Record summary
Rfam assigns this 386-nucleotide RNA sequence from Paraglaciecola sp. T6c to the family "Bacterial RNase P class A". Rfam classes the family as a ribozyme. Lineage of the source: Bacteria > Pseudomonadota > Gammaproteobacteria > Alteromonadales > Paraglaciecola.

RNA sequence: GGAGUUGGUCAGGCAAUCGCCGCUUGUUAGAUAUUUCAUUAGGGCUAGUCCCUAGAGUAAUGUGUUAAUAAGGGGAGGAAAGUCCGGGCUCCACAGGGCAGGGUGCCAGGUAACGCCUGGGCGGCGCAAGCCGACGACAAGUGCAGCAGAGAGGAAACCGCCUAAGCGCGCAAGCGCCGGUAAGGGUGAAAGGGUGCGGUAAGAGCGCACCGCACCACUGGUAACAGUGUGUGGCAAGGUAAACUCCACCCGGAGCAAGACCAAAUAGGAUCUCUUAUGGCGUGGCCCACGUUGAGAUCGGGUGUGUUGCUUGAGCCAGCGAGUGAUUGCUGGCCUAGAUGAAUGGUUGUCCACGACAGAACCCGGCUUAUCGACCAACUCCACCU
Numbered sequence: 001g002g003a004g005u006u007g008g009u010c011a012g013g014c015a016a017u018c019g020c021c022g023c024u025u026g027u028u029a030g031a032u033a034u035u036u037c038a039u040u041a042g043g044g045c046u047a048g049u050c051c052c053u054a055g056a057g058u059a060a061u062g063u064g065u066u067a068a069u070a071a072g073g074g075g076a077g078g079a080a081a082g083u084c085c086g087g088g089c090u091c092c093a094c095a096g097g098g099c100a101g102g103g104u105g106c107c108a109g110g111u112a113a114c115g116c117c118u119g120g121g122c123g124g125c126g127c128a129a130g131c132c133g134a135c136g137a138c139a140a141g142u143g144c145a146g147c148a149g150a151g152a153g154g155a156a157a158c159c160g161c162c163u164a165a166g167c168g169c170g171c172a173a174g175c176g177c178c179g180g181u182a183a184g185g186g187u188g189a190a191a192g193g194g195u196g197c198g199g200u201a202a203g204a205g206c207g208c209a210c211c212g213c214a215c216c217a218c219u220g221g222u223a224a225c226a227g228u229g230u231g232u233g234g235c236a237a238g239g240u241a242a243a244c245u246c247c248a249c250c251c252g253g254a255g256c257a258a259g260a261c262c263a264a265a266u267a268g269g270a271u272c273u274c275u276u277a278u279g280g281c282g283u284g285g286c287c288c289a290c291g292u293u294g295a296g297a298u299c300g301g302g303u304g305u306g307u308u309g310c311u312u313g314a315g316c317c318a319g320c321g322a323g324u325g326a327u328u329g330c331u332g333g334c335c336u337a338g339a340u341g342a343a344u345g346g347u348u349g350u351c352c353a354c355g356a357c358a359g360a361a362c363c364c365g366g367c368u369u370a371u372c373g374a375c376c377a378a379c380u381c382c383a384c385c386u
Stems, first nucleotide, its partner, number of pairs: 001382010011371001012351007020075002023072008080369003084366005089255004096288004101251005106120005121135001122133004136246002141244002143240002158185002160181003166177004193211006212235001213233003216229005259308003269299006279293005315334008